[Rfam]
RNA: Archaeal large subunit ribosomal RNA, nucleotides 905 to 1353
Organism: Halostella sp. JP-L12
RNA sequence: CCAACCGAAACAUGUCGAAGCAUGACCUCUGCCGAGGUAGUUCGUGAGGUAGAGACACUGAUUGGGAGACCCAACUCCGAGAGGAGUUGGCCUCCCUGUCAAACUCCGAACUUACGAACGCCGCUGACGCAGGGAGUCCGGUGUGCGGGGUAAGCCUGUGCACCAUGAGGGAGACAACCCAGAGCCGGGUUAAGGUCCCCAAGUGUGGAUUAAGUGCGAUCGAAGGUGGUCUCGAGCCCUAAACAGCCGGGAGGUGAGCUUAGAAGCAGCUACCCUCUAAGAAAAGCGUAACAGCUUACCGGCCGAGGUUCGAGGCGCCCAAAAUGAUCGGGGCUCAAAUCCACCACCGAGACCUGGCGGCGCCAGUCACAUGGCGAUCCAGUAGGUUGGCGUUCUGUUCGGGUGGAAGCACGGGCGAGAGCUCGCGUGGACCGUCCAGUAACGAAAAU
Numbered sequence: 001c002c003a004a005c006c007g008a009a010a011c012a013u014g015u016c017g018a019a020g021c022a023u024g025a026c027c028u029c030u031g032c033c034g035a036g037g038u039a040g041u042u043c044g045u046g047a048g049g050u051a052g053a054g055a056c057a058c059u060g061a062u063u064g065g066g067a068g069a070c071c072c073a074a075c076u077c078c079g080a081g082a083g084g085a086g087u088u089g090g091c092c093u094c095c096c097u098g099u100c101a102a103a104c105u106c107c108g109a110a111c112u113u114a115c116g117a118a119c120g121c122c123g124c125u126g127a128c129g130c131a132g133g134g135a136g137u138c139c140g141g142u143g144u145g146c147g148g149g150g151u152a153a154g155c156c157u158g159u160g161c162a163c164c165a166u167g168a169g170g171g172a173g174a175c176a177a178c179c180c181a182g183a184g185c186c187g188g189g190u191u192a193a194g195g196u197c198c199c200c201a202a203g204u205g206u207g208g209a210u211u212a213a214g215u216g217c218g219a220u221c222g223a224a225g226g227u228g229g230u231c232u233c234g235a236g237c238c239c240u241a242a243a244c245a246g247c248c249g250g251g252a253g254g255u256g257a258g259c260u261u262a263g264a265a266g267c268a269g270c271u272a273c274c275c276u277c278u279a280a281g282a283a284a285a286g287c288g289u290a291a292c293a294g295c296u297u298a299c300c301g302g303c304c305g306a307g308g309u310u311c312g313a314g315g316c317g318c319c320c321a322a323a324a325u326g327a328u329c330g331g332g333g334c335u336c337a338a339a340u341c342c343a344c345c346a347c348c349g350a351g352a353c354c355u356g357g358c359g360g361c362g363c364c365a366g367u368c369a370c371a372u373g374g375c376g377a378u379c380c381a382g383u384a385g386g387u388u389g390g391c392g393u394u395c396u397g398u399u400c401g402g403g404u405g406g407a408a409g410c411a412c413g414g415g416c417g418a419g420a421g422c423u424c425g426c427g428u429g430g431a432c433c434g435u436c437c438a439g440u441a442a443c444g445a446a447a448a449u
Base pairs, nucleotide, nucleotide: 001390002389003388004387005386006385011024012023013022014021015020026136027134028133029132030131031130032129036122037121038120040119041118042117043116044115045114046113047112052107053105054104060100061099062098064096065095066094067093068092073088074087075086076085077084078083140164141163142162143161144160145159146158147157148156169180170179171178184358185357186356187355188354189353190352194348195347196346203345205344206343207342208341209340210339225319226318227317229316230315231314232313233312234311235310236309237308238307246303247302248301249300250299252276253275254274257271258270259269277281282297286295287294359380360379361376362375363374364373365372391444393441395439396438397437400434401433402432409428410427412425413424414423415422416421